[Rfam]
RNA sequence: CUCUCUAUGCUUUUGAUUGUUGCUCAGAAAGCCUCGAUAUCGAUACUGGCUUUCGGGCAAUAAUCAUAAUCACG
Numbered sequence: 001c002u003c004u005c006u007a008u009g010c011u012u013u014u015g016a017u018u019g020u021u022g023c024u025c026a027g028a029a030a031g032c033c034u035c036g037a038u039a040u041c042g043a044u045a046c047u048g049g050c051u052u053u054c055g056g057g058c059a060a061u062a063a064u065c066a067u068a069a070u071c072a073c074g
Base pairs, nucleotide, nucleotide: 011069012068014066015065016064017063019061020060021059022058023057024056025055027054028053029052030051031050032049033048

A member of the RNA family "mir-315 microRNA precursor family" from Nasonia longicornis, 74 nucleotides long. Gene Ontology terms of the family: RISC complex and miRNA-mediated post-transcriptional gene silencing. The sequence is in the family's curated seed alignment. A reference for the family is Ruby et al. (2007), "Evolution, biogenesis, expression, and target predictions of a substantially expanded set of Drosophila microRNAs", Genome Res.